[Rfam]
RNA: ZMP/ZTP riboswitch aptamer (pfl RNA motif)
Organism: Paenibacillus dendritiformis
RNA sequence: GGCACUCGGUGUAACUGGCGACGGAAGUGGGAGAACCACGGUGGAGCAUCGAGUGAUAUACGGCCGGUCGCCUGGGCGAAAGAG
Numbered sequence: 001g002g003c004a005c006u007c008g009g010u011g012u013a014a015c016u017g018g019c020g021a022c023g024g025a026a027g028u029g030g031g032a033g034a035a036c037c038a039c040g041g042u043g044g045a046g047c048a049u050c051g052a053g054u055g056a057u058a059u060a061c062g063g064c065c066g067g068u069c070g071c072c073u074g075g076g077c078g079a080a081a082g083a084g
Stems, first nucleotide, its partner, number of pairs: 003055010015043001017072005027039004063077003
Dot-bracket structure: ..((((((((((..(.[[[[[.....((((.....))))...)..)))))))))).......(((..]]]]]..))).......